[Rfam]
Plant small nucleolar RNA U3: a 215-nucleotide sequence. Rfam describes the family as follows. Small nucleolar RNAs (snoRNAs) are involved in the processing and modification of rRNA in the nucleolus. There are two main classes of snoRNAs: the box C/D class, and the box H/ACA class. U3 snoRNA is a member of the box C/D class. The family is grouped with related families in Rfam's "U3 clan". Gene Ontology terms of the family: RNA processing and nucleolus. It is annotated as a C/D-box small nucleolar RNA.

RNA sequence: ACGACCUUACUUGAACAGGAUCUGUUCUAUAGGAUUGUACUACUGUGUCCUUGAUUUCUAAGGAGAUAGGAACAUAUGUCUGGUAGAUGAGUUGUGACCGUGUGAUCAGAGCGUGAUUAACGGCCAGGAUGAUGUGUGCAUCAUCUUCAGCUGUAGAUGAUCGUUCUUGGCCUAGUUCAACUAACCGGGAUGGUCACAUGGUUGUCUGACAGAUU
Numbered sequence: 001a002c003g004a005c006c007u008u009a010c011u012u013g014a015a016c017a018g019g020a021u022c023u024g025u026u027c028u029a030u031a032g033g034a035u036u037g038u039a040c041u042a043c044u045g046u047g048u049c050c051u052u053g054a055u056u057u058c059u060a061a062g063g064a065g066a067u068a069g070g071a072a073c074a075u076a077u078g079u080c081u082g083g084u085a086g087a088u089g090a091g092u093u094g095u096g097a098c099c100g101u102g103u104g105a106u107c108a109g110a111g112c113g114u115g116a117u118u119a120a121c122g123g124c125c126a127g128g129a130u131g132a133u134g135u136g137u138g139c140a141u142c143a144u145c146u147u148c149a150g151c152u153g154u155a156g157a158u159g160a161u162c163g164u165u166c167u168u169g170g171c172c173u174a175g176u177u178c179a180a181c182u183a184a185c186c187g188g189g190a191u192g193g194u195c196a197c198a199u200g201g202u203u204g205u206c207u208g209a210c211a212g213a214u215u
Stems, first nucleotide, its partner, number of pairs: 001038002003035001005033003013027006043069004048064006078214005097202012110165004120154005126147009166189005173183003